[Rfam]
RNA: Lysine riboswitch aptamer
Organism: Clostridium thermosuccinogenes
RNA sequence: AAAAAUGAUAGAGGUGCGUUUUUCAAUAGUACGUCCGCUGAAAAGAAAGGGCUUUAAUGAUGCUGACGGAAAGGGUCAAACGCCGAAGGAUGAUCAUCCCUUUUGUGGUCCUUCCUGGUUAUAUGGUUAAUAGCCAUAUAAUUGUCAUCAGUAAAAUGAUGGAGCGCUAUCAGUUCA
Dot-bracket structure: .....((((((....((((((..(.......((((.((.......................)).))))......)..))))))...((((.((((((.......))))))..))))(((((((((((.....))))))))))).((((((......))))))....)))))).....
Numbered sequence: 001a002a003a004a005a006u007g008a009u010a011g012a013g014g015u016g017c018g019u020u021u022u023u024c025a026a027u028a029g030u031a032c033g034u035c036c037g038c039u040g041a042a043a044a045g046a047a048a049g050g051g052c053u054u055u056a057a058u059g060a061u062g063c064u065g066a067c068g069g070a071a072a073g074g075g076u077c078a079a080a081c082g083c084c085g086a087a088g089g090a091u092g093a094u095c096a097u098c099c100c101u102u103u104u105g106u107g108g109u110c111c112u113u114c115c116u117g118g119u120u121a122u123a124u125g126g127u128u129a130a131u132a133g134c135c136a137u138a139u140a141a142u143u144g145u146c147a148u149c150a151g152u153a154a155a156a157u158g159a160u161g162g163a164g165c166g167c168u169a170u171c172a173g174u175u176c177a
Stems, first nucleotide, its partner, number of pairs: 006172006016083006024075001032068004037063002087116004092110006117143011145162006